Notes
mir-9223 microRNA precursor family: a 76-nucleotide RNA sequence from Myotis brandtii. The family has 9 seed sequences and 14,641 matches in Rfam 15.1. The source organism's lineage runs through Eukaryota, Craniata, Gnathostomata, Sarcopterygii and Myotis.
[Rfam]
RNA sequence: GGCAGUUCUCGGGUGACACACCCCGGAAUUGGGUCCCCCUCCUCUCUGGUUUUGGGUGCAUCACCCGAGAACUGCA
Numbered sequence: 001g002g003c004a005g006u007u008c009u010c011g012g013g014u015g016a017c018a019c020a021c022c023c024c025g026g027a028a029u030u031g032g033g034u035c036c037c038c039c040u041c042c043u044c045u046c047u048g049g050u051u052u053u054g055g056g057u058g059c060a061u062c063a064c065c066c067g068a069g070a071a072c073u074g075c076a
Stems, first nucleotide, its partner, number of pairs: 002075002005072012019058005025053009
Dot-bracket structure: .((.((((((((((((..(((((.(((((((((...........))))))))))))))..)))))))))))).)).